RNA sequence: CACAAGUGGAGCAGCAACCACUGCAAAAAACGGGCGGGACCGAAAAGCCAGAAGAGUAGGAAAACA
Dot-bracket structure: .....((((........))))...........(((....[[.....))).........]]......
A member of the RNA family "DUF805 RNA" from Chitinophaga barathri, 66 nucleotides long. The family's RNA type in Rfam is cis-regulatory element. Its Rfam clan is "DUF805 clan".